The family of this 101-nucleotide sequence from Sphaerimonospora thailandensis is "Fluoride riboswitch aptamer (crcB RNA motif)".
RNA sequence: GAUCCGUACGGCGAUGGAUCCCGCCGGGGCGGCAUUCGUCGAUCACUUCCCAUCCACUGCCGCCCGAACCGCCGCUGACGGCUGAUGGCUCCUGACGACAC
Numbered sequence: 001g002a003u004c005c006g007u008a009c010g011g012c013g014a015u016g017g018a019u020c021c022c023g024c025c026g027g028g029g030c031g032g033c034a035u036u037c038g039u040c041g042a043u044c045a046c047u048u049c050c051c052a053u054c055c056a057c058u059g060c061c062g063c064c065c066g067a068a069c070c071g072c073c074g075c076u077g078a079c080g081g082c083u084g085a086u087g088g089c090u091c092c093u094g095a096c097g098a099c100a101c
Stems, first nucleotide, its partner, number of pairs: 010025004016092003020088002071082004
A search with the family's covariance model found it, with a score of 37 bits. Taxonomically the source falls in Sphaerimonospora (Bacteria, Bacillati, Actinomycetes, Streptosporangiales). Pairs were carried over by alignment from the consensus structure, which is taken from published work.